[Rfam]
Nucleotides: 112
Stems, first nucleotide, its partner, number of pairs: 002047003011041007019033003024079004062107003083095004
Number, partner (000 for none) and nucleotide at each position: 001000c002047g003046g004045c005000a006000u007000u008000g009000a010000a011041g012040c013039a014038a015037u016036g017035g018000a019033c020032u021031g022000g023000u024079u025078c026077g027076g028000u029000c030000a031021c032020a033019g034000c035017c036016u037015g038014u039013u040012g041011c042000a043000g044000a045004g046003c047002c048000a049000g050000a051000u052000u053000g054000u055000g056000g057000g058000u059000u060000a061000u062107g063106c064105g065000g066000u067000a068000a069000c070000c071000a072000c073000a074000a075000g076027c077026c078025g079024a080000a081000u082000a083095g084094a085093u086092u087000c088000u089000u090000c091000g092086a093085a094084u095083c096000g097000a098000a099000u100000g101000a102000a103000a104000a105064c106063g107062c108000u109000u110000a111000a112000u

Rfam assigns this 112-nucleotide sequence to the family "drum RNA". Rfam's curators write: Firmicutes, Bacteroidetes (1 example), Proteobacteria (2 examples), Spirochaetes (2 examples).